[Rfam]
RNA sequence: CCGCGGGGACGACCCCGCAGACGGGCUUUUUCAUCCGCCGGGACGGCCAGG
Numbered sequence: 001c002c003g004c005g006g007g008g009a010c011g012a013c014c015c016c017g018c019a020g021a022c023g024g025g026c027u028u029u030u031u032c033a034u035c036c037g038c039c040g041g042g043a044c045g046g047c048c049a050g051g
Base pairs, nucleotide, nucleotide: 001020003018004017005016006015007014008013038051039050041048042047